Shown here is a 63-nucleotide RNA sequence from Clostridium sp. CT7, a member of the family "Fluoride riboswitch aptamer (crcB RNA motif)".
[Rfam]
Nucleotides: 063
Stems, first nucleotide, its partner, number of pairs: 010025004016054006032044004
Number, partner (000 for none) and nucleotide at each position: 001000a002000a003000u004000u005000u006000u007000a008000u009000a010025g011024g012023u013022g014000a015000u016054g017053a018052a019051g020050u021049u022013c023012a024011c025010c026000u027000u028000a029000a030000a031000u032044a033043u034042c035041c036000u037000g038000u039000u040000u041035g042034g043033a044032u045000u046000a047000a048000u049021g050020a051019c052018u053017u054016c055000u056000a057000c058000a059000u060000u061000u062000u063000a
The base pairs follow the family's consensus structure, which is taken from published work. Taxonomically the source falls in Clostridium (Bacteria, Bacillota, Clostridia, Clostridiaceae). A search with the family's covariance model found it, with a score of 46 bits.